[Rfam]
RNA sequence: GGAAGUCAGGUUUGUGGUUGAAAGUCGAUGCCAGUCGCAGGCAAAGCGAUCCACGUAAGUUAAAUAAAAUAUUUAAUGAGCAUGGUGCGGUUUAGAAGUAAGUCCUGCCGUUAUGUAAAAUGGCGAGAGGAUUAGUAGUGAGAGGUUAAUUCCCGGUAGCGAGGAUUCCAGCAGGCGAGUGUGGGGUCAAAGACCAGGUCAACUGACUUCG
Numbered sequence: 001g002g003a004a005g006u007c008a009g010g011u012u013u014g015u016g017g018u019u020g021a022a023a024g025u026c027g028a029u030g031c032c033a034g035u036c037g038c039a040g041g042c043a044a045a046g047c048g049a050u051c052c053a054c055g056u057a058a059g060u061u062a063a064a065u066a067a068a069a070u071a072u073u074u075a076a077u078g079a080g081c082a083u084g085g086u087g088c089g090g091u092u093u094a095g096a097a098g099u100a101a102g103u104c105c106u107g108c109c110g111u112u113a114u115g116u117a118a119a120a121u122g123g124c125g126a127g128a129g130g131a132u133u134a135g136u137a138g139u140g141a142g143a144g145g146u147u148a149a150u151u152c153c154c155g156g157u158a159g160c161g162a163g164g165a166u167u168c169c170a171g172c173a174g175g176c177g178a179g180u181g182u183g184g185g186g187u188c189a190a191a192g193a194c195c196a197g198g199u200c201a202a203c204u205g206a207c208u209u210c211g
Base pairs, nucleotide, nucleotide: 002210003209004208005207006206007205008204009203012202013201014200015196016195017194018193019192028182029181030180031041033092034091035090036089037088038087039086050085051084058077060075062073063072083189104175105174106173107172108171109125110124111123112122113121129168130167131166132165138160139159144153145152